[Rfam]
Shown here is a 46-nucleotide RNA sequence from Mytilus coruscus, a member of the family "Histone 3' UTR stem-loop". It is annotated as a cis-regulatory element. Rfam links the family to the GO term mRNA 3'-end processing by stem-loop binding and cleavage. For this family Rfam cites "The sequence of the stem and flanking sequences at the 3' end of histone mRNA are critical determinants for the binding of the stem-loop binding protein" (Williams and Marzluff, Nucleic Acids Res, 1995).
RNA sequence: AAAACGGCUCUUUUUAGAGUCACAAAAACAUUCAAAAAAGAGUCUU
Numbered sequence: 001a002a003a004a005c006g007g008c009u010c011u012u013u014u015u016a017g018a019g020u021c022a023c024a025a026a027a028a029c030a031u032u033c034a035a036a037a038a039a040g041a042g043u044c045u046u
Stems, first nucleotide, its partner, number of pairs: 006021006